RNA: Bacterial RNase P class A
RNA sequence: UGAGUUGGCCAGAUGAUCGCUGCCUGAUAUGAAAAUUAUCAGGGGGAGGAAAGUCCGGGCUCCACAGGGCAGGGUGCCAGCUAACGGCUGGGAGGCGUGAGCCUACGACAAGUGCAGCAGAGAGAAGACCGCCGAUGGCUGCUUUCGAGUAGAACAGGUAAGGCUGAAAGGGUGCGGUAAGAGCGCACCGGACCACUGGUAACAGUUGGUUGCAGGGUAAACUCCACCCGGAGCAAGACCAAAUAGGGUUCCUAAUGGCGUGGCCCACGUUGGAACCGGGUAGGUUGCUUGAGCCUUAGAGCGAUUUAAGGCCUAGACGAAUGAUUAUCCUUUUCUUAGGAAAAGAACAGAACCCGGCUUAUACGGCUGACUCACUAA
Numbered sequence: 001u002g003a004g005u006u007g008g009c010c011a012g013a014u015g016a017u018c019g020c021u022g023c024c025u026g027a028u029a030u031g032a033a034a035a036u037u038a039u040c041a042g043g044g045g046g047a048g049g050a051a052a053g054u055c056c057g058g059g060c061u062c063c064a065c066a067g068g069g070c071a072g073g074g075u076g077c078c079a080g081c082u083a084a085c086g087g088c089u090g091g092g093a094g095g096c097g098u099g100a101g102c103c104u105a106c107g108a109c110a111a112g113u114g115c116a117g118c119a120g121a122g123a124g125a126a127g128a129c130c131g132c133c134g135a136u137g138g139c140u141g142c143u144u145u146c147g148a149g150u151a152g153a154a155c156a157g158g159u160a161a162g163g164c165u166g167a168a169a170g171g172g173u174g175c176g177g178u179a180a181g182a183g184c185g186c187a188c189c190g191g192a193c194c195a196c197u198g199g200u201a202a203c204a205g206u207u208g209g210u211u212g213c214a215g216g217g218u219a220a221a222c223u224c225c226a227c228c229c230g231g232a233g234c235a236a237g238a239c240c241a242a243a244u245a246g247g248g249u250u251c252c253u254a255a256u257g258g259c260g261u262g263g264c265c266c267a268c269g270u271u272g273g274a275a276c277c278g279g280g281u282a283g284g285u286u287g288c289u290u291g292a293g294c295c296u297u298a299g300a301g302c303g304a305u306u307u308a309a310g311g312c313c314u315a316g317a318c319g320a321a322u323g324a325u326u327a328u329c330c331u332u333u334u335c336u337u338a339g340g341a342a343a344a345g346a347a348c349a350g351a352a353c354c355c356g357g358c359u360u361a362u363a364c365g366g367c368u369g370a371c372u373c374a375c376u377a378a
Stems, first nucleotide, its partner, number of pairs: 001374010011362001012329007020046002023043006051360003055357005060233004067266004072229005077091005092106001093104004107224002112222002114218002129163002131159003140154001171189006190213001191211005196205003237286004247277006257271005293312008
Dot-bracket structure: ((((((((((((((((((.((.((((((.........)))))).))....[[[.[[[[[((((...[[[[.((((((((((.....)))))(((((....)))).)((...((((.............(((((......(.............)..)))..)).......((((((.......))))))(((((((((....))).))))).)...))..)))))))))))))...((((......((((((....(((((.]]]]))))))))))).....))))......((((((((....))))))))..........))))))).......................]]]]]]]].)..))))))))))....